Rfam assigns this 145-nucleotide sequence from Cettia cetti to the family "Small nucleolar RNA SNORA79". The family has 25 seed sequences and 944 matches in Rfam 15.1. ACA65 (SNORA79) is a member of the H/ACA class of snoRNAs that guide the sites of modification of uridines to pseudouridines. The base pairs follow the family's consensus structure, which was predicted with RNAalifold.

RNA sequence: CGACCCGCGUUCCCCCCGUCGCCGCCAGCCGCGGGCGCUCGGGGUUUUAGCGGUGUCGCAGAGCAGCGGCGGCUCCUUCUUCACCCGGCGGAGCGGAGCUGAGGCGGCUUCGGGGCUCCGCCGGACUUUGGGGGGCCGCACAAAU
Number, nucleotide and partner (000 for none) at each position: 001c058002g057003a056004c055005c053006c052007g051008c050009g000010u000011u000012c000013c000014c044015c043016c042017c041018g040019u000020c037021g036022c035023c034024g000025c000026c000027a000028g000029c000030c000031g000032c000033g000034g023035g022036c021037g020038c000039u000040c018041g017042g016043g015044g014045u000046u000047u000048u000049a000050g008051c007052g006053g005054u000055g004056u003057c002058g001059c000060a000061g000062a000063g000064c000065a000066g000067c000068g000069g000070c000071g137072g136073c135074u134075c133076c132077u000078u000079c000080u000081u000082c000083a000084c000085c124086c123087g122088g121089c120090g119091g118092a117093g116094c115095g111096g110097a109098g108099c107100u000101g000102a000103g000104g000105c000106g000107g099108c098109u097110u096111c095112g000113g000114g000115g094116c093117u092118c091119c090120g089121c088122c087123g086124g085125a000126c000127u000128u000129u000130g000131g000132g076133g075134g074135g073136c072137c071138g000139c000140a000141c000142a000143a000144a000145u000